[Rfam]
RNA sequence: UGCAUUCACUAACUGUAAGUCACUCUGGAUAAGAGCGUCUGCUAAAUAUCUAAAA
Numbered sequence: 001u002g003c004a005u006u007c008a009c010u011a012a013c014u015g016u017a018a019g020u021c022a023c024u025c026u027g028g029a030u031a032a033g034a035g036c037g038u039c040u041g042c043u044a045a046a047u048a049u050c051u052a053a054a055a
Base pairs, nucleotide, nucleotide: 014044015042016041017040021037023035024034025033026032
Rfam assigns this 55-nucleotide RNA from Coregonus sp. 'balchen' to the family "UnaL2 LINE 3' element". The eel long interspersed element (LINE) UnaL2 and its partner short interspersed element (SINE) share a conserved 3' tail containing a stem-loop that is critical for their retrotransposition. Presumably, the first step of retrotransposition is the recognition of their 3' tails by UnaL2-encoded reverse transcriptase. The family's consensus secondary structure is taken from published work. The family's RNA type in Rfam is cis-regulatory element. For this family Rfam cites "Solution structure of an RNA stem-loop derived from the 3' conserved region of eel LINE UnaL2" (Baba et al., RNA, 2004).